Rfam assigns this 118-nucleotide sequence from Bacillus sp. cl95 to the family "RNA Staph. aureus E (RoxS)".
It is annotated as a small RNA.
About the family: It was shown to be regulated by the presence of nitric oxide (NO).
Rfam links the family to the GO term regulation of translational initiation.
Pairs were carried over by alignment from the consensus structure, which is taken from published work.
The source organism's lineage runs through Bacteria, Bacillota, Bacilli, Caryophanales and Bacillus.
RNA sequence: GUGAAGUUGAUCACAAACAAACAUUAACCCCUUUGUUUGAACCGUGAAAGAUUUCUCCCAUCCCCUUUGUUCGUAUUUAUAGAAAAGACCUUUCAGCUUACGGAGCUAAAAGGUCUUU
Numbered sequence: 001g002u003g004a005a006g007u008u009g010a011u012c013a014c015a016a017a018c019a020a021a022c023a024u025u026a027a028c029c030c031c032u033u034u035g036u037u038u039g040a041a042c043c044g045u046g047a048a049a050g051a052u053u054u055c056u057c058c059c060a061u062c063c064c065c066u067u068u069g070u071u072c073g074u075a076u077u078u079a080u081a082g083a084a085a086a087g088a089c090c091u092u093u094c095a096g097c098u099u100a101c102g103g104a105g106c107u108a109a110a111a112g113g114u115c116u117u118u
Base pairs, nucleotide, nucleotide: 003055004054005053006052007051008050011047012046013045014044018039019038020037021036022035023034071083087115088114089113090112091111092110093109095107096106097105